[Rfam]
RNA sequence: AUUUUAUCUUUUGAUUAUUUAAGAUAAUAGCCAAUUUGAGAACUUAAUGUAGUAGUCAGAUGUAAGUGGGGGAAUCAACGUUUAUAUUUGAUUUAACUACGCCUCAAUGUAGCGAUUGUAGUUUCUACAAUCAUUCUUUUUAACCCAACUAGUAGUGCAAACAAUAUGA
Numbered sequence: 001a002u003u004u005u006a007u008c009u010u011u012u013g014a015u016u017a018u019u020u021a022a023g024a025u026a027a028u029a030g031c032c033a034a035u036u037u038g039a040g041a042a043c044u045u046a047a048u049g050u051a052g053u054a055g056u057c058a059g060a061u062g063u064a065a066g067u068g069g070g071g072g073a074a075u076c077a078a079c080g081u082u083u084a085u086a087u088u089u090g091a092u093u094u095a096a097c098u099a100c101g102c103c104u105c106a107a108u109g110u111a112g113c114g115a116u117u118g119u120a121g122u123u124u125c126u127a128c129a130a131u132c133a134u135u136c137u138u139u140u141u142a143a144c145c146c147a148a149c150u151a152g153u154a155g156u157g158c159a160a161a162c163a164a165u166a167u168g169a
Stems, first nucleotide, its partner, number of pairs: 002029001004027007013018001036107005048101006055092014069076002112158002114132008136155002139152002
Notes:
The family of this 169-nucleotide RNA from Actinobacillus indolicus is "nqrA-II ncRNA motif". A search with the family's covariance model found it, with a score of 128 bits. Lineage of the source: Bacteria > Pseudomonadati > Pasteurellales > Pasteurellaceae > Actinobacillus.